[Rfam]
RNA sequence: CUCGCCGCACACGACUGGCGCAGGUGGGCAACCACCAGGGAGUGACGAGUCGGCAUCGAUCGCCUGGGUGCCCUCA
Numbered sequence: 001c002u003c004g005c006c007g008c009a010c011a012c013g014a015c016u017g018g019c020g021c022a023g024g025u026g027g028g029c030a031a032c033c034a035c036c037a038g039g040g041a042g043u044g045a046c047g048a049g050u051c052g053g054c055a056u057c058g059a060u061c062g063c064c065u066g067g068g069u070g071c072c073c074u075c076a
Stems, first nucleotide, its partner, number of pairs: 003049001005047001010044003015039002017064004024035004053071005
Dot-bracket structure: ..(.(....(((..(([[[[...((((....))))..))..)))..).)...(((((...]]]]..))))).....

Record summary:
This 76-nucleotide RNA from Nocardioides sp. Root190 belongs to the Rfam family "ZMP/ZTP riboswitch aptamer (pfl RNA motif)". NCBI's taxonomy places the organism under Bacteria, Actinomycetota, Actinomycetes, Nocardioidaceae, Nocardioides.